Overview: A member of the RNA family "Tryptophan operon leader" from Xenorhabdus cabanillasii, 102 nucleotides long. By type it is a cis-regulatory leader.
RNA sequence: AUGCGUUGGUGGCUUAACUUCCCAUUCAGGGCGGUAAAAUUACGCACAUAAGUAGAGAACCAAAGUGCCAAGAACCCGCUCUGGAAAAGCGGGUUUUUUUAU
Numbered sequence: 001a002u003g004c005g006u007u008g009g010u011g012g013c014u015u016a017a018c019u020u021c022c023c024a025u026u027c028a029g030g031g032c033g034g035u036a037a038a039a040u041u042a043c044g045c046a047c048a049u050a051a052g053u054a055g056a057g058a059a060c061c062a063a064a065g066u067g068c069c070a071a072g073a074a075c076c077c078g079c080u081c082u083g084g085a086a087a088a089g090c091g092g093g094u095u096u097u098u099u100u101a102u
Stems, first nucleotide, its partner, number of pairs: 009043004014037003018033001020031003073095007080087001
At least 6 amino acid operons are known to be regulated by attenuation. The literature on the family includes a 1982 paper in Annu Rev Genet by Kolter and Yanofsky, "Attenuation in amino acid biosynthetic operons".